[Rfam]
RNA sequence: UUUGCAAGUGACGAUAACAUAGACAGGGACAUCAGUACGUAUGCUAAGGAUGGUGAUUUGUCUUUGGGACUCUCUCUGAUGCAUA
Number, nucleotide and partner (000 for none) at each position: 001u000002u000003u083004g082005c081006a080007a000008g000009u000010g000011a000012c000013g000014a000015u000016a000017a000018c000019a000020u000021a000022g000023a000024c000025a000026g000027g000028g000029a000030c000031a000032u000033c000034a000035g000036u000037a000038c000039g000040u000041a000042u000043g000044c000045u000046a000047a000048g000049g000050a000051u000052g000053g000054u000055g000056a000057u000058u000059u000060g000061u000062c000063u000064u000065u000066g000067g000068g000069a000070c000071u000072c000073u000074c000075u000076c000077u000078g000079a000080u006081g005082c004083a003084u000085a000
Shown here is an 85-nucleotide RNA from Vigna angularis, a member of the family "Small nucleolar RNA R44/J54/Z268 family". The family's consensus secondary structure was predicted with PFOLD. The match comes from Rfam's covariance-model search (70 bits). Rfam links the family to the GO terms nucleolus and RNA processing. It is annotated as a C/D-box small nucleolar RNA. Taxonomically the source falls in Vigna angularis (Eukaryota, Streptophyta, Mesangiospermae, eudicotyledons).